[Rfam]
RNA sequence: UACAUCGACUAAAGGGCAUUUUUUGUUUUACCGUGGUGCUAUGACCACUUAAGUGAUGUACUGUCCUAAGAAAUAGUGAUUAUGCCACUAUCCGUUCAAACGGUGCAAUACAGUAAGAGUAAACAAGCAUAGCCUUAGCCUUGUGUUUUGCAUAAUGAAAUGCAAGGUUAU
Dot-bracket structure: (((((((.........................((((..{{{{{.)))).....)))))))((((........(((((([[[[[[[))))))((((....))))......))))..............}}}}}....(((((((((((((]]]]]]])))))))))))))..